RNA sequence: ACUUUAGAUAGAGGUUGCGUAUUCAAUGAGUAAUUCUGCGGAUGUGUCAGGCACAGGAGAAGCAGAAUGGAAGGUGAAUAUGCCGAAAGGUUCGGUCUCCUGAGGAUCGGAUGCUUGGGCAUAUAGUUAAGAGCUAUAUGACUGUCAUCGCAGAUGGGGCGCUAUCAGUUCA
Numbered sequence: 001a002c003u004u005u006a007g008a009u010a011g012a013g014g015u016u017g018c019g020u021a022u023u024c025a026a027u028g029a030g031u032a033a034u035u036c037u038g039c040g041g042a043u044g045u046g047u048c049a050g051g052c053a054c055a056g057g058a059g060a061a062g063c064a065g066a067a068u069g070g071a072a073g074g075u076g077a078a079u080a081u082g083c084c085g086a087a088a089g090g091u092u093c094g095g096u097c098u099c100c101u102g103a104g105g106a107u108c109g110g111a112u113g114c115u116u117g118g119g120c121a122u123a124u125a126g127u128u129a130a131g132a133g134c135u136a137u138a139u140g141a142c143u144g145u146c147a148u149c150g151c152a153g154a155u156g157g158g159g160c161g162c163u164a165u166c167a168g169u170u171c172a
Stems, first nucleotide, its partner, number of pairs: 007166005017083009033068007087116003090112008117143002120140008145157005
Dot-bracket structure: ......(((((.....(((((((((.......(((((((......................)))))))......)))))))))...(((((((((((.......)))))))).)))((.((((((((.....)))))))).)).(((((...)))))....)))))......